[Rfam]
Nucleotides: 147
Stems, first nucleotide, its partner, number of pairs: 003132004010033002034127006044056002057112003065088010091106004
Number, partner (000 for none) and nucleotide at each position: 001000c002000c003132c004131g005130c006129c007000g008000a009000a010033c011032c012000g013000c014000c015000c016000g017000g018000c019000c020000c021000g022000a023000c024000g025000g026000c027000c028000g029000g030000g031000a032011g033010g034127a035126c036125c037124g038123g039122g040000g041000a042000c043000c044056c045055a046000c047000c048000g049000c050000a051000g052000u053000c054000c055045u056044g057112g058111g059110g060000u061000g062000a063000g064000u065088c066087c067086u068085g069084c070083c071082c072081g073080c074079a075000c076000g077000c078000g079074u080073g081072c082071g083070g084069g085068c086067a087066g088065g089000u090000a091106g092105g093104g094103c095000a096000c097000c098000u099000u100000c101000g102000c103094g104093c105092c106091c107000g108000a109000a110059c111058c112057c113000g114000u115000c116000a117000g118000c119000u120000a121000a122039c123038c124037c125036g126035g127034u128000a129006g130005g131004c132003g133000g134000u135000c136000g137000g138000a139000g140000g141000a142000a143000a144000c145000g146000g147000a
This 147-nucleotide RNA sequence from Blastococcus sp. TF02A-30 belongs to the Rfam family "c-di-AMP riboswitch aptamer (ydaO/yuaA leader)". A search with the family's covariance model found it, with a score of 59 bits. The source organism's lineage runs through Bacteria, Bacillati, Actinomycetes, Geodermatophilales and Blastococcus.